[Rfam]
RNA sequence: UCACAAGAUCAUGGCCAUAGCAGAAGCACUCACACCGUGGCCCUAUCAGAUUUCAGUGAAUCUGCGAAUUCUGCU
Numbered sequence: 001u002c003a004c005a006a007g008a009u010c011a012u013g014g015c016c017a018u019a020g021c022a023g024a025a026g027c028a029c030u031c032a033c034a035c036c037g038u039g040g041c042c043c044u045a046u047c048a049g050a051u052u053u054c055a056g057u058g059a060a061u062c063u064g065c066g067a068a069u070u071c072u073g074c075u
Stems, first nucleotide, its partner, number of pairs: 013042004019075007026038002047064007

The record is a 75-nucleotide RNA sequence from Alligator sinensis, which matches "Mammalian CPEB3 ribozyme" in Rfam. A search with the family's covariance model found it, with a score of 54 bits. Its family is annotated with RNA nuclease activity in the Gene Ontology.